RNA sequence: UUCUUAUUAAGAGAGGCGGAGGGACUGGCCCUAUGAAGCCCGGCAACCGGUAUAUGUUUCAUUUAACAGAUGCAAUGGUGCCAAUUCCUGCAGCAUAAAUUGCUGAUAGAUGAGAG
Numbered sequence: 001u002u003c004u005u006a007u008u009a010a011g012a013g014a015g016g017c018g019g020a021g022g023g024a025c026u027g028g029c030c031c032u033a034u035g036a037a038g039c040c041c042g043g044c045a046a047c048c049g050g051u052a053u054a055u056g057u058u059u060c061a062u063u064u065a066a067c068a069g070a071u072g073c074a075a076u077g078g079u080g081c082c083a084a085u086u087c088c089u090g091c092a093g094c095a096u097a098a099a100u101u102g103c104u105g106a107u108a109g110a111u112g113a114g115a116g
Base pairs, nucleotide, nucleotide: 001116002115003114004113005112006111007110008109013041015040016039017038021031022030023029025090027088028087042082043081044080045079047078048077050073051072052071086108091105092104093103094102095101
RNA: SAM riboswitch aptamer (S box leader)